[Rfam]
RNA: Alphaproteobacteria transfer-messenger RNA
RNA sequence: UAUCUUGACAUCUACUCAAUGCUACUACAUAAUAAGUGUGUGCAUUUUGUACACUAUGGCAAUAAAAUUACCUUGUAAUAGGUGUAUUGGACCCGAGGGCAGUACUCGGCGCCUCCACCAUAUUUUUACAUGGGGGUGAAUAAGGAUCGACAUACAUAGUAAAGAUGGUAGCUUUGCUCGGUCAGAUACCACCGUUAAGAGUUUAUAAUUUAGAUGCAAACGAUAAUUUUGCUGCUAAUGGUAAUGUUGUAGCAUUAGUUGCUUAAACUAAGCUAUAAUCUUAUUACUAUAAGCACGGUUUGGGAACGCCGGGUAACAGAAAGUUCCCCA
Numbered sequence: 001u002a003u004c005u006u007g008a009c010a011u012c013u014a015c016u017c018a019a020u021g022c023u024a025c026u027a028c029a030u031a032a033u034a035a036g037u038g039u040g041u042g043c044a045u046u047u048u049g050u051a052c053a054c055u056a057u058g059g060c061a062a063u064a065a066a067a068u069u070a071c072c073u074u075g076u077a078a079u080a081g082g083u084g085u086a087u088u089g090g091a092c093c094c095g096a097g098g099g100c101a102g103u104a105c106u107c108g109g110c111g112c113c114u115c116c117a118c119c120a121u122a123u124u125u126u127u128a129c130a131u132g133g134g135g136g137u138g139a140a141u142a143a144g145g146a147u148c149g150a151c152a153u154a155c156a157u158a159g160u161a162a163a164g165a166u167g168g169u170a171g172c173u174u175u176g177c178u179c180g181g182u183c184a185g186a187u188a189c190c191a192c193c194g195u196u197a198a199g200a201g202u203u204u205a206u207a208a209u210u211u212a213g214a215u216g217c218a219a220a221c222g223a224u225a226a227u228u229u230u231g232c233u234g235c236u237a238a239u240g241g242u243a244a245u246g247u248u249g250u251a252g253c254a255u256u257a258g259u260u261g262c263u264u265a266a267a268c269u270a271a272g273c274u275a276u277a278a279u280c281u282u283a284u285u286a287c288u289a290u291a292a293g294c295a296c297g298g299u300u301u302g303g304g305a306a307c308g309c310c311g312g313g314u315a316a317c318a319g320a321a322a323g324u325u326c327c328c329c330a
Stems, first nucleotide, its partner, number of pairs: 040054003044050001058178005068171005074165001083156003088152002093109005110138007179194004185204002188202002296311004302327004